[Rfam]
This 357-nucleotide RNA belongs to the Rfam family "Bacterial RNase P class A". Its family is annotated with tRNA processing, dimeric ribonuclease P complex and ribonuclease P activity in the Gene Ontology. A search with the family's covariance model found it, with a score of 127 bits. Pairs were carried over by alignment from the consensus structure, which is taken from published work. By type it is a ribozyme.
RNA sequence: UAAGCGUAGGUGGUUGCAGUAUAUAAAAACUUUUAUAUUACUGAGGAAAGUCCGGGCUUUAAGUUGAAAAUAUUGCUGGAUAAAUUCCAGAAUGAUAGAUCAUUAGCAAAGCACUACAGAAAAUAUUCUAAUAACUUUAAUUUAAAGUUAUUAAAGUUGCAACGGUAUAUUACCUCUAAUAUUGUGAAAUAUUAUGGCAGUAAGCCUCAAUAAAAAGCAAGGUCUAUAUGAUUUAAAGCUAAAAAUAAAUUUUGUGCUUGAAAAACCGCAUAAAGUAUUUAGUAAUAAAUACUUUAAGAUAAAUAACCACCCUUGAAAAGAAAUUUCAAGAACUAAACCCGGCUUAUGUCUUACAUA
Numbered sequence: 001u002a003a004g005c006g007u008a009g010g011u012g013g014u015u016g017c018a019g020u021a022u023a024u025a026a027a028a029a030c031u032u033u034u035a036u037a038u039u040a041c042u043g044a045g046g047a048a049a050g051u052c053c054g055g056g057c058u059u060u061a062a063g064u065u066g067a068a069a070a071u072a073u074u075g076c077u078g079g080a081u082a083a084a085u086u087c088c089a090g091a092a093u094g095a096u097a098g099a100u101c102a103u104u105a106g107c108a109a110a111g112c113a114c115u116a117c118a119g120a121a122a123a124u125a126u127u128c129u130a131a132u133a134a135c136u137u138u139a140a141u142u143u144a145a146a147g148u149u150a151u152u153a154a155a156g157u158u159g160c161a162a163c164g165g166u167a168u169a170u171u172a173c174c175u176c177u178a179a180u181a182u183u184g185u186g187a188a189a190u191a192u193u194a195u196g197g198c199a200g201u202a203a204g205c206c207u208c209a210a211u212a213a214a215a216a217g218c219a220a221g222g223u224c225u226a227u228a229u230g231a232u233u234u235a236a237a238g239c240u241a242a243a244a245a246u247a248a249a250u251u252u253u254g255u256g257c258u259u260g261a262a263a264a265a266c267c268g269c270a271u272a273a274a275g276u277a278u279u280u281a282g283u284a285a286u287a288a289a290u291a292c293u294u295u296a297a298g299a300u301a302a303a304u305a306a307c308c309a310c311c312c313u314u315g316a317a318a319a320g321a322a323a324u325u326u327c328a329a330g331a332a333c334u335a336a337a338c339c340c341g342g343c344u345u346a347u348g349u350c351u352u353a354c355a356u357a
Base pairs, nucleotide, nucleotide: 001353002352003351004350008347009311010310011309012308013307014306015305017043018042019041020040021038022037023036024035025034048345049344050343052342053341054340055339056338057217058216059215060214069246071212072211073210074209075208076090077089078088079087080086091104092103093102094101095100105207106206111205112204113201114200115199128156129155130152131151132150133149134148135147136146137145138144164174165173166172167171176196177194178193179192180191181190182189183188221267222266223265231258233256242252243251244250274293275292276291277290278289279288280287281286